[Rfam]
Rfam assigns this 75-nucleotide RNA from Myotis davidii to the family "mir-9223 microRNA precursor family".

RNA sequence: GGUGGUUCUUUGGUGACGCACCCCAGAAUUGGGCUCCCUCCUUUCUGGUUCUGUGUGCAUCACCCGAGAACCACA
Dot-bracket structure: .((.((((((.(((((..(((.(.(((((((((..........)))))))))).)))..))))).)))))).)).
Numbered sequence: 001g002g003u004g005g006u007u008c009u010u011u012g013g014u015g016a017c018g019c020a021c022c023c024c025a026g027a028a029u030u031g032g033g034c035u036c037c038c039u040c041c042u043u044u045c046u047g048g049u050u051c052u053g054u055g056u057g058c059a060u061c062a063c064c065c066g067a068g069a070a071c072c073a074c075a
Stems, first nucleotide, its partner, number of pairs: 002074002005071006012064005019057003023053001025052009
Its family is annotated with RISC complex and miRNA-mediated post-transcriptional gene silencing in the Gene Ontology. Lineage of the source: Eukaryota > Euteleostomi > Amniota > Chiroptera > Myotis.